Shown here is a 170-nucleotide RNA sequence from Haemaphysalis longicornis, a member of the family "U2 spliceosomal RNA".
It scores 106 bits against the family's covariance model.
The family has 208 seed sequences and 71,512 matches in Rfam 15.1.
Its Rfam clan is "U2 clan".
NCBI's taxonomy places the organism under Eukaryota, Opisthokonta, Eumetazoa, Ecdysozoa, Haemaphysalis.
U2 is a small nuclear RNA (snRNA) component of the spliceosome (involved in pre-mRNA splicing).
By type it is a spliceosomal small nuclear RNA.
[Rfam]
RNA sequence: AAAGUUGUCCUUUCAGUAUCUGUUCUUAUCAGCUUAAUAUCUGAUACGAGUCCUAUUUGGACUCAAGAUAUUAAACUAAUUUUUGCCACUUGGCGUCGUGAAGGGGCUUGCUCCUCCGGCGCCGCGGGUUGUCCCAGCGUUGCACUGAUGCCGGGUUCGGCCCGAGACCC
Numbered sequence: 001a002a003a004g005u006u007g008u009c010c011u012u013u014c015a016g017u018a019u020c021u022g023u024u025c026u027u028a029u030c031a032g033c034u035u036a037a038u039a040u041c042u043g044a045u046a047c048g049a050g051u052c053c054u055a056u057u058u059g060g061a062c063u064c065a066a067g068a069u070a071u072u073a074a075a076c077u078a079a080u081u082u083u084u085g086c087c088a089c090u091u092g093g094c095g096u097c098g099u100g101a102a103g104g105g106g107c108u109u110g111c112u113c114c115u116c117c118g119g120c121g122c123c124g125c126g127g128g129u130u131g132u133c134c135c136a137g138c139g140u141u142g143c144a145c146u147g148a149u150g151c152c153g154g155g156u157u158c159g160g161c162c163c164g165a166g167a168c169c170c
Base pairs, nucleotide, nucleotide: 027046028045029044030043031042032041048064049063050062051061052060053059092123093122094121095120096119097118098117103114104113105112106111126163127162128161129160130159131158133155134154135153137151138150